This 311-nucleotide sequence from Mariniflexile fucanivorans belongs to the Rfam family "Bacterial RNase P class A".
Gene Ontology terms of the family: tRNA processing, ribonuclease P activity and dimeric ribonuclease P complex.
The family's RNA type in Rfam is ribozyme.

RNA sequence: CGAGUAAAUCGCCUUAUCGCUCGGGUUUUAUAUCUGGGAGGAAAGUCCGAACACCAUAGUGCAAUAUAGUGGUUAAUGGCCACCAGCCGAAAGGCUAGGACAAGUGCAACAGAAAGAAUGUACAGGUAAUGCUGUAGUGAAACCAGGUAAACUCUAUGUGGUGCAAUGCUAUGUAAACCAGUGCUUGAAGGCGGCACGCUUGAUGCUGGAGGGUAAGCAGCUAAAGUGUAUUGGUAACAAUGCACUCAGAUAAAUGAUAAGGGCUUUUUUUAGGAAAAGUACAGAAUUCGGCUUAUAGAUUUACUUUUUAA
Dot-bracket structure: .(((((((((((((((((.(((((((.....)))))))....[[[.[[[[[((((...[[[[.((((((((((.....)))))(((((....)))).)((...((((.............(((((......)))))..........))..)))))))))))))...((((.......(((((......((((.]]]]))))...)))))......))))......((((((((....))))))))..........)))))))........................]]]]]]]].).))))))))).....